[Rfam]
RNA: tRNA
RNA sequence: GCUCUUAUAGCUCAGAUGGUAGAGCGCAUCCUUGGUAAGGAUGAGGUCACCGGUUCAAUUCCGGUUAAGAGCU
Numbered sequence: 001g002c003u004c005u006u007a008u009a010g011c012u013c014a015g016a017u018g019g020u021a022g023a024g025c026g027c028a029u030c031c032u033u034g035g036u037a038a039g040g041a042u043g044a045g046g047u048c049a050c051c052g053g054u055u056c057a058a059u060u061c062c063g064g065u066u067a068a069g070a071g072c073u
Stems, first nucleotide, its partner, number of pairs: 001072007010025004027043005049065005